[Rfam]
Shown here is a 91-nucleotide RNA sequence from Streptococcus satellite phage Javan114, a member of the family "skipping-rope RNA". Rfam classes the family as a small RNA. The match comes from Rfam's covariance-model search (52 bits).
RNA sequence: AAGGAUAGAGGUUGAAAAGUAUCCGCCUCCAACGCGCCACUUAGCUAGUGGGUCGAGAAAUGCGGGCGACAUUCGGCUCCCGCCUAUCCUU
Numbered sequence: 001a002a003g004g005a006u007a008g009a010g011g012u013u014g015a016a017a018a019g020u021a022u023c024c025g026c027c028u029c030c031a032a033c034g035c036g037c038c039a040c041u042u043a044g045c046u047a048g049u050g051g052g053u054c055g056a057g058a059a060a061u062g063c064g065g066g067c068g069a070c071a072u073u074c075g076g077c078u079c080c081c082g083c084c085u086a087u088c089c090u091u
Stems, first nucleotide, its partner, number of pairs: 001091008011033004023076003035057001037051005062083005